A member of the RNA family "Purine riboswitch aptamer" from Mesobacillus boroniphilus, 101 nucleotides long. The organism belongs to Mesobacillus boroniphilus, within Bacteria. Rfam describes the family as follows. Riboswitches are metabolite binding domains within certain messenger RNAs that serve as precision sensors for their corresponding targets.

RNA sequence: AGUGAAAUUUAGUUUUUCUCUCGUAUAAUAAUGGGGAUAUGCCCAUGAGUUUCUACCCGGUAACCGUAAAUUUCCGGACUAUGAGGGAAAGUAGUUUUUAA
Numbered sequence: 001a002g003u004g005a006a007a008u009u010u011a012g013u014u015u016u017u018c019u020c021u022c023g024u025a026u027a028a029u030a031a032u033g034g035g036g037a038u039a040u041g042c043c044c045a046u047g048a049g050u051u052u053c054u055a056c057c058c059g060g061u062a063a064c065c066g067u068a069a070a071u072u073u074c075c076g077g078a079c080u081a082u083g084a085g086g087g088a089a090a091g092u093a094g095u096u097u098u099u100a101a
Base pairs, nucleotide, nucleotide: 018087019086020085021084022083023082024081025080029048031046032045033044034043035042057077058076059075060074062072063071